[Rfam]
RNA sequence: ACGAAGUUCCGGGGACGGUGAGAUUCCGUACCGGCGGUACAGUCCGCGAGCCGCUCGACCUGCAGCAGCAGGGAGAUCCGGUUGACUCGGUGAGAUUCCGAGACCGACAGUCAAAGUCUGGAUGGGAGGAACUCGAC
Numbered sequence: 001a002c003g004a005a006g007u008u009c010c011g012g013g014g015a016c017g018g019u020g021a022g023a024u025u026c027c028g029u030a031c032c033g034g035c036g037g038u039a040c041a042g043u044c045c046g047c048g049a050g051c052c053g054c055u056c057g058a059c060c061u062g063c064a065g066c067a068g069c070a071g072g073g074a075g076a077u078c079c080g081g082u083u084g085a086c087u088c089g090g091u092g093a094g095a096u097u098c099c100g101a102g103a104c105c106g107a108c109a110g111u112c113a114a115a116g117u118c119u120g121g122a123u124g125g126g127a128g129g130a131a132c133u134c135g136a137c
Base pairs, nucleotide, nucleotide: 005133006132007131008130009129010128016028017027018026030117031116032106033105034047035046036045037044042104043103050082051081052080086102087101088100089099090098108120109119110118
Background:
This 137-nucleotide RNA from Brevibacterium sp. CS2 belongs to the Rfam family "FMN riboswitch aptamer (RFN element)". The base pairs follow the family's consensus structure, which is taken from published work. Taxonomically the source falls in Brevibacterium (Bacteria, Actinomycetota, Actinomycetes, Micrococcales).